[Rfam]
RNA sequence: GUAAAGACAAAGGGGUGCCCCAUGGAGGGCUGAGAUUAUACCCGUUGAACCUGAUGCAGUUAGUACUGCCGUAGGAAUUGUUGCAAAGCUUAUU
Numbered sequence: 001g002u003a004a005a006g007a008c009a010a011a012g013g014g015g016u017g018c019c020c021c022a023u024g025g026a027g028g029g030c031u032g033a034g035a036u037u038a039u040a041c042c043c044g045u046u047g048a049a050c051c052u053g054a055u056g057c058a059g060u061u062a063g064u065a066c067u068g069c070c071g072u073a074g075g076a077a078u079u080g081u082u083g084c085a086a087a088g089c090u091u092a093u094u
Base pairs, nucleotide, nucleotide: 006082007081008080009079010078012043013042014041016038017030018029019028020027050075051074052073053072056069057068058067059066
Annotation
Shown here is a 94-nucleotide sequence from Bacteroides luti, a member of the family "TPP riboswitch aptamer (THI element)". The literature on the family includes a 2007 paper in RNA by Welz and Breaker, "Ligand binding and gene control characteristics of tandem riboswitches in Bacillus anthracis". The family's consensus secondary structure is taken from published work.